[Rfam]
RNA sequence: CUGUUAAUGUGUGCAUGGUUUUCAUCUGUGUCUGGUAGCAGUGUCUGUCUGUGUUUUGCAUUCAGAUCUUGCUAUCCACACAAAUGUCUUGCAGCCAAAGAGUAACUUGGGAUCAUAGUACUGGUCUAGUGUUGUCUAUUUGGACACAUCUACCACUAGCCAGCCUCCAAAUUCCCGCACAGUG
Numbered sequence: 001c002u003g004u005u006a007a008u009g010u011g012u013g014c015a016u017g018g019u020u021u022u023c024a025u026c027u028g029u030g031u032c033u034g035g036u037a038g039c040a041g042u043g044u045c046u047g048u049c050u051g052u053g054u055u056u057u058g059c060a061u062u063c064a065g066a067u068c069u070u071g072c073u074a075u076c077c078a079c080a081c082a083a084a085u086g087u088c089u090u091g092c093a094g095c096c097a098a099a100g101a102g103u104a105a106c107u108u109g110g111g112a113u114c115a116u117a118g119u120a121c122u123g124g125u126c127u128a129g130u131g132u133u134g135u136c137u138a139u140u141u142g143g144a145c146a147c148a149u150c151u152a153c154c155a156c157u158a159g160c161c162a163g164c165c166u167c168c169a170a171a172u173u174c175c176c177g178c179a180c181a182g183u184g
Stems, first nucleotide, its partner, number of pairs: 013092003029082003033078003036074006043067005050060003108177005121163005128157004133148003137144001